The record is a 102-nucleotide RNA from Acinetobacter guillouiae, which matches "Guanidine-I riboswitch aptamer" in Rfam. The match comes from Rfam's covariance-model search (81 bits). The organism belongs to Acinetobacter guillouiae, within Bacteria.
[Rfam]
RNA sequence: UAAAAAGUGAUCUAGGGUUCCGAUACUUGUCUAAAAGAGUAUGUCUGGACCGAGAGUUCGCGGUUCGAAAGAACUACACGGAGGGAUAAAAGCCCGGGAGGA
Numbered sequence: 001u002a003a004a005a006a007g008u009g010a011u012c013u014a015g016g017g018u019u020c021c022g023a024u025a026c027u028u029g030u031c032u033a034a035a036a037g038a039g040u041a042u043g044u045c046u047g048g049a050c051c052g053a054g055a056g057u058u059c060g061c062g063g064u065u066c067g068a069a070a071g072a073a074c075u076a077c078a079c080g081g082a083g084g085g086a087u088a089a090a091a092g093c094c095c096g097g098g099a100g101g102a
Stems, first nucleotide, its partner, number of pairs: 007061004012056001015051002020048002022045001023042006062075005077097001079100001083095003
The base pairs follow the family's consensus structure.